The family of this 119-nucleotide RNA from Caenorhabditis elegans is "Small nucleolar RNA U6-47". On this family, see Zemann et al., Nucleic Acids Res 2006: "Evolution of small nucleolar RNAs in nematodes". Pairs were carried over by alignment from the consensus structure, which was predicted with WAR. Lineage of the source: Eukaryota > Ecdysozoa > Nematoda > Rhabditina > Caenorhabditis. By type it is a C/D-box small nucleolar RNA. Its family is annotated with nucleolus and RNA processing in the Gene Ontology. Rfam's curators put it in the seed alignment.
[Rfam]
RNA sequence: CAGCUAUGACGAGUUCUUGACGACAUGACGUCAUCACUGACAAUUAAAGAUAGUUCCCUUCGUUCGGGUUGACUAUCGUCGGAGAUGUGGACGAGCGCCUAAUCUUCUCUCUGAGCUGU
Numbered sequence: 001c002a003g004c005u006a007u008g009a010c011g012a013g014u015u016c017u018u019g020a021c022g023a024c025a026u027g028a029c030g031u032c033a034u035c036a037c038u039g040a041c042a043a044u045u046a047a048a049g050a051u052a053g054u055u056c057c058c059u060u061c062g063u064u065c066g067g068g069u070u071g072a073c074u075a076u077c078g079u080c081g082g083a084g085a086u087g088u089g090g091a092c093g094a095g096c097g098c099c100u101a102a103u104c105u106u107c108u109c110u111c112u113g114a115g116c117u118g119u
Stems, first nucleotide, its partner, number of pairs: 001118004